[Rfam]
RNA sequence: ACAGCGCAAACUGAUCAGGCCGUGGCGCAUCGCCAUGGAGCCGGGCCAUAUUUGGCAGCAGACGCACACGCGCCUGCGGGACAGUA
Numbered sequence: 001a002c003a004g005c006g007c008a009a010a011c012u013g014a015u016c017a018g019g020c021c022g023u024g025g026c027g028c029a030u031c032g033c034c035a036u037g038g039a040g041c042c043g044g045g046c047c048a049u050a051u052u053u054g055g056c057a058g059c060a061g062a063c064g065c066a067c068a069c070g071c072g073c074c075u076g077c078g079g080g081a082c083a084g085u086a
Base pairs, nucleotide, nucleotide: 010085011084012083013082016080018042019041020040022036023035024034025033026032027031045056046055047054048053058077059076060075061074063072